Source information
The family of this 207-nucleotide RNA sequence from Clostridium thermopalmarium is "glmS glucosamine-6-phosphate activated ribozyme aptamer". A search with the family's covariance model found it, with a score of 95 bits. Rfam classes the family as a riboswitch.

[Rfam]
RNA sequence: AAUUAAUUUAAAGCGCUAGAGGUUAAGAAUAUUUGAUUAGUUCAGUAAGUUUGAAGAACUAGAUCAAGGGAAUUAGAUUUCCACUUAACCUGACGAGGAUGGGGAGUAUCGAAGAUUUCAGCGGGUGCCCCACGGUAUAAAUACUACCGUUAAAGACUAGCAAAACUGGAAAGCGAUUUUCAGCACAAAUCUAGUCGGGUAUUUAGA
Numbered sequence: 001a002a003u004u005a006a007u008u009u010a011a012a013g014c015g016c017u018a019g020a021g022g023u024u025a026a027g028a029a030u031a032u033u034u035g036a037u038u039a040g041u042u043c044a045g046u047a048a049g050u051u052u053g054a055a056g057a058a059c060u061a062g063a064u065c066a067a068g069g070g071a072a073u074u075a076g077a078u079u080u081c082c083a084c085u086u087a088a089c090c091u092g093a094c095g096a097g098g099a100u101g102g103g104g105a106g107u108a109u110c111g112a113a114g115a116u117u118u119c120a121g122c123g124g125g126u127g128c129c130c131c132a133c134g135g136u137a138u139a140a141a142u143a144c145u146a147c148c149g150u151u152a153a154a155g156a157c158u159a160g161c162a163a164a165a166c167u168g169g170a171a172a173g174c175g176a177u178u179u180u181c182a183g184c185a186c187a188a189a190u191c192u193a194g195u196c197g198g199g200u201a202u203u204u205a206g207a
Base pairs, nucleotide, nucleotide: 020091021090022089023088024087025086026085027084100132101131102130103129104128109121111119112118133149134148135147136146137145155196156195157194158193159192166183167182168181169180170179171178172177